RNA sequence: GAAAAAGCAGUGACAUGUUGCCUCUGUGAACAGGCCUCUCGUUACCUUCAGAGAUAUAUGAAUCCAAAGUUAUUGGGUGAACCGCUGUUCUUUCUUUAUGACUCCAGGUUCAAUAAACCGUGGGACAUUU
Numbered sequence: 001g002a003a004a005a006a007g008c009a010g011u012g013a014c015a016u017g018u019u020g021c022c023u024c025u026g027u028g029a030a031c032a033g034g035c036c037u038c039u040c041g042u043u044a045c046c047u048u049c050a051g052a053g054a055u056a057u058a059u060g061a062a063u064c065c066a067a068a069g070u071u072a073u074u075g076g077g078u079g080a081a082c083c084g085c086u087g088u089u090c091u092u093u094c095u096u097u098a099u100g101a102c103u104c105c106a107g108g109u110u111c112a113a114u115a116a117a118c119c120g121u122g123g124g125a126c127a128u129u130u
Base pairs, nucleotide, nucleotide: 005048006047007046012036014034016032017031063124064123065122066121069118070117071116078112079111080110081109082108083107